[Rfam]
RNA sequence: AUCUUAUCGAGAGAGGUGGAGGGACUGACCCUUUGAAGCCUCAGCAACCAGCAAUUUUUUGUAUGGUGCUAAUUUCAGAAGAAUACCUGUGUAUUCUAAAGAUGAGUU
Numbered sequence: 001a002u003c004u005u006a007u008c009g010a011g012a013g014a015g016g017u018g019g020a021g022g023g024a025c026u027g028a029c030c031c032u033u034u035g036a037a038g039c040c041u042c043a044g045c046a047a048c049c050a051g052c053a054a055u056u057u058u059u060u061g062u063a064u065g066g067u068g069c070u071a072a073u074u075u076c077a078g079a080a081g082a083a084u085a086c087c088u089g090u091g092u093a094u095u096c097u098a099a100a101g102a103u104g105a106g107u108u
Stems, first nucleotide, its partner, number of pairs: 001108001003106006013042005021031003025078004043070004048066002050062001053059001074100001080097006